Overview
A member of the RNA family "pan motif" from Bacillus sp. FJAT-50079, 88 nucleotides long. It scores 66 bits against the family's covariance model. The organism belongs to Bacillus, within Bacteria.
RNA sequence: UGGGCGGUAUCGAAAUGAGCUGCACCUUGAUUCAUGACAAUUUAACGUAUUUUAUCUGCCUUGAUCCAUUACGGACUAGGACAGAGGG
Numbered sequence: 001u002g003g004g005c006g007g008u009a010u011c012g013a014a015a016u017g018a019g020c021u022g023c024a025c026c027u028u029g030a031u032u033c034a035u036g037a038c039a040a041u042u043u044a045a046c047g048u049a050u051u052u053u054a055u056c057u058g059c060c061u062u063g064a065u066c067c068a069u070u071a072c073g074g075a076c077u078a079g080g081a082c083a084g085a086g087g088g
Base pairs, nucleotide, nucleotide: 002026003025004023005022006021007020008019010018011017056084057083058082059080060079061078063076065075066074067073